[Rfam]
RNA sequence: AAGAAAUGAUGAGGCAAAGAUUGUCUCUGAUAUGGUGAAGACUGUCAGAUCCAACUCUGAUCUUGCCCAGUGU
Numbered sequence: 001a002a003g004a005a006a007u008g009a010u011g012a013g014g015c016a017a018a019g020a021u022u023g024u025c026u027c028u029g030a031u032a033u034g035g036u037g038a039a040g041a042c043u044g045u046c047a048g049a050u051c052c053a054a055c056u057c058u059g060a061u062c063u064u065g066c067c068c069a070g071u072g073u
Stems, first nucleotide, its partner, number of pairs: 001064004
The family of this 73-nucleotide sequence from Geotrypetes seraphini is "Small nucleolar RNA SNORD19".
The literature on the family includes a 2001 paper in EMBO J by Huttenhofer et al., "RNomics: an experimental approach that identifies 201 candidates for novel, small, non-messenger RNAs in mouse".
The pairing is the family consensus, mapped onto this sequence.
The family is grouped with related families in Rfam's "SNORD19 clan".
Gene Ontology terms of the family: RNA processing and nucleolus.